[Rfam]
Bacterial large subunit ribosomal RNA: a 441-nucleotide part of an RNA from Limosilactobacillus frumenti. The base pairs follow the family's consensus structure, which is taken from published work.
RNA sequence: CUCUCCGAAAUCUCUUUAGGGGGAGCCUUGAGGAAUAGAAUCGUGGAGGUAGAGCUACUGUUUGGAUACGGGGCCCGUCAUGGGUUACCAACUUCAGAUAAACUCCGAAUGCCAUUGAUUUAUACUCAGGAGUCACACGAUGAGUGAUAAGAUCCACCGUGUAAAGGGGAACAGCCCAGAUCACCAGUUAAGGUCCCUAAAUAUAUGCUAAGUGGAAAAGGAUGUGGAGUUGCAUAGACAACUAGGAUGUUGGCUCAGAAGCAGCCACCAUUUAAAGAGUGCGUAAUAGCUCACUAGUCGAGUGAUCCUGCGCCGAAAAUGUACCGGGGCUAAGCAUAUUACCGAAACUGUGGAUGUGCACUACGUGCACGUGAUAGGAGAGCGUUCUAAGGGCGGUGAAGCUAGACCGUGAGGACUGGUGGAGCGCUUAGAAGUGAGAAU
Number, nucleotide and partner (000 for none) at each position: 001c382002u381003c380004u379005c378006c377007g000008a000009a000010a000011u024012c023013u022014c021015u020016u000017u000018a000019g000020g015021g014022g013023g012024a011025g000026c132027c130028u129029u128030g127031a126032g125033g000034a000035a000036u000037a123038g120039a119040a000041u117042c000043g115044u114045g113046g112047a000048g000049g000050u000051a000052g106053a104054g103055c000056u000057a000058c000059u100060g099061u098062u000063u096064g095065g094066a093067u000068a000069c000070g089071g088072g086073g085074c084075c083076c082077g000078u000079c000080a000081u000082g076083g075084g074085u073086u072087a000088c071089c070090a000091a000092c000093u066094u065095c064096a063097g000098a061099u060100a059101a000102a000103c054104u053105c000106c052107g000108a000109a000110u000111g000112c046113c045114a044115u043116u000117g041118a000119u039120u038121u000122a000123u037124a000125c032126u031127c030128a029129g028130g027131a000132g026133u000134c000135a000136c161137a160138c159139g158140a000141u156142g155143a000144g153145u152146g000147a000148u000149a000150a000151g000152a145153u144154c000155c142156a141157c000158c139159g138160u137161g136162u000163a000164a000165a000166g177167g176168g175169g000170a000171a000172c000173a000174g000175c168176c167177c166178a000179g000180a000181u353182c352183a351184c350185c000186a349187g348188u347189u000190a000191a000192g343193g342194u341195c000196c000197c000198u000199a000200a000201a340202u000203a339204u338205a337206u336207g335208c334209u000210a000211a000212g000213u000214g000215g000216a000217a000218a000219a000220g314221g313222a000223u000224g311225u310226g309227g308228a000229g306230u305231u304232g303233c302234a000235u000236a000237g000238a000239c000240a000241a298242c297243u296244a295245g294246g000247a271248u270249g269250u000251u000252g266253g265254c264255u000256c000257a000258g000259a000260a000261g000262c000263a000264g254265c253266c252267a000268c000269c249270a248271u247272u276273u000274a000275a000276a272277g292278a000279g000280u000281g290282c289283g000284u000285a000286a000287u000288a000289g282290c281291u000292c277293a000294c245295u244296a243297g242298u241299c000300g000301a000302g233303u232304g231305a230306u229307c000308c227309u226310g225311c224312g000313c221314c220315g000316a000317a000318a000319a000320u000321g000322u000323a000324c000325c000326g000327g000328g000329g000330c000331u000332a000333a000334g208335c207336a206337u205338a204339u203340u201341a194342c193343c192344g000345a000346a000347a188348c187349u186350g184351u183352g182353g181354a372355u371356g370357u369358g368359c367360a366361c365362u000363a000364c000365g361366u360367g359368c358369a357370c356371g355372u354373g000374a000375u000376a000377g006378g005379a004380g003381a002382g001383c436384g000385u433386u432387c431388u430389a429390a428391g427392g000393g425394c424395g000396g000397u000398g000399a000400a000401g420402c419403u418404a417405g416406a000407c414408c413409g000410u000411g000412a000413g408414g407415a000416c405417u404418g403419g402420u401421g000422g000423a000424g394425c393426g000427c391428u390429u389430a388431g387432a386433a385434g000435u000436g383437a000438g000439a000440a000441u000
Clan: LSU clan.